Makes More Granules Regulator RNA (mmgR): a 73-nucleotide sequence from Caulobacter sp.

RNA sequence: CGCUCCUGCCCUUCCUGGGCGUUUCCUCCCUAAUGACUGCCCGGCCUUCGCGCCGGGCUUUUUUUUGCCCUUU
Number, nucleotide and partner (000 for none) at each position: 001c000002g000003c000004u000005c000006c000007u000008g020009c019010c018011c017012u000013u000014c000015c000016u000017g011018g010019g009020c008021g000022u000023u000024u000025c000026c000027u000028c000029c000030c000031u000032a000033a000034u000035g000036a000037c000038u000039g058040c057041c056042c055043g054044g053045c052046c000047u000048u000049c000050g000051c000052g045053c044054c043055g042056g041057g040058c039059u000060u000061u000062u000063u000064u000065u000066u000067g000068c000069c000070c000071u000072u000073u000

It scores 52 bits against the family's covariance model. A reference for the family is Corbino et al. (2005), "Evidence for a second class of S-adenosylmethionine riboswitches and other regulatory RNA motifs in alpha-proteobacteria", Genome Biol.